RNA sequence: GAUCCCCCACAACGGCUUCCUGGCGUGGCGGGUUUGCACCAACGGAGCA
Numbered sequence: 001g002a003u004c005c006c007c008c009a010c011a012a013c014g015g016c017u018u019c020c021u022g023g024c025g026u027g028g029c030g031g032g033u034u035u036g037c038a039c040c041a042a043c044g045g046a047g048c049a
Stems, first nucleotide, its partner, number of pairs: 004031002007028004013022002015048003019045002

The record is a 49-nucleotide sequence from Tabrizicola piscis, which matches "SAM/SAH riboswitch aptamer" in Rfam.
Its family is annotated with S-adenosylmethionine metabolic process and regulation of gene expression in the Gene Ontology.
The organism belongs to Tabrizicola, within Bacteria.
A reference for the family is Weickhmann et al. (2019), "The structure of the SAM/SAH-binding riboswitch", Nucleic Acids Res.